This 94-nucleotide sequence from Defluviitalea raffinosedens belongs to the Rfam family "THF (Tetrahydrofolate) riboswitch aptamer". Tetrahydrofolate (THF) riboswitch was first reported for Ames et al. as an RNA motif in 5' untranslated (5'-UTR)regions of folate transport and biosynthesis genes in Firmicutes genomes. On this family, see Huang et al., Proc Natl Acad Sci U S A 2011: "Long-range pseudoknot interactions dictate the regulatory response in the tetrahydrofolate riboswitch". Gene Ontology term of the family: tetrahydrofolate metabolic process.
[Rfam]
RNA sequence: GACAGAGUAGGUAAAGUGCGUUAAGUGUUAAGGGAUGGGAAGUUGCCCUUAAACGAAAGCUAUUUAGCUGCGGUACUUUAUCGCUUCCGCUGCC
Numbered sequence: 001g002a003c004a005g006a007g008u009a010g011g012u013a014a015a016g017u018g019c020g021u022u023a024a025g026u027g028u029u030a031a032g033g034g035a036u037g038g039g040a041a042g043u044u045g046c047c048c049u050u051a052a053a054c055g056a057a058a059g060c061u062a063u064u065u066a067g068c069u070g071c072g073g074u075a076c077u078u079u080a081u082c083g084c085u086u087c088c089g090c091u092g093c094c
Base pairs, nucleotide, nucleotide: 001094003092004091005090010082011081012080013079014078015077016076017075018074019072020071021070025054026053028052029051030050031049032048033047034046038088039087040086041085042084058069059068060067061066